[Rfam]
RNA sequence: UGGGGGAAUCUGUAAAGCUCAGGAGGGAUAGCGCCAUGGAUGAUGUCGAUAGUGAACAACAAGAACAAGGGGCUUCCGCAAGUUCUUAUCAUCGACAGCGCUAUCCAUCCUGAGUUUUAUGGGUUCUCAAU
Numbered sequence: 001u002g003g004g005g006g007a008a009u010c011u012g013u014a015a016a017g018c019u020c021a022g023g024a025g026g027g028a029u030a031g032c033g034c035c036a037u038g039g040a041u042g043a044u045g046u047c048g049a050u051a052g053u054g055a056a057c058a059a060c061a062a063g064a065a066c067a068a069g070g071g072g073c074u075u076c077c078g079c080a081a082g083u084u085c086u087u088a089u090c091a092u093c094g095a096c097a098g099c100g101c102u103a104u105c106c107a108u109c110c111u112g113a114g115u116u117u118u119a120u121g122g123g124u125u126c127u128c129a130a131u
Stems, first nucleotide, its partner, number of pairs: 010122001016116009026106009
MIR390 microRNA precursor family: a 131-nucleotide RNA from Protea cynaroides.
The literature on the family includes a 2005 paper in Nucleic Acids Res by Gustafson et al., "ASRP: the Arabidopsis Small RNA Project Database".
The match comes from Rfam's covariance-model search (87 bits).
The base pairs follow the family's consensus structure, which was predicted with WAR.
The source organism's lineage runs through Eukaryota, Embryophyta, Magnoliopsida, Mesangiospermae and Protea.
Its family is annotated with RISC complex and miRNA-mediated post-transcriptional gene silencing in the Gene Ontology.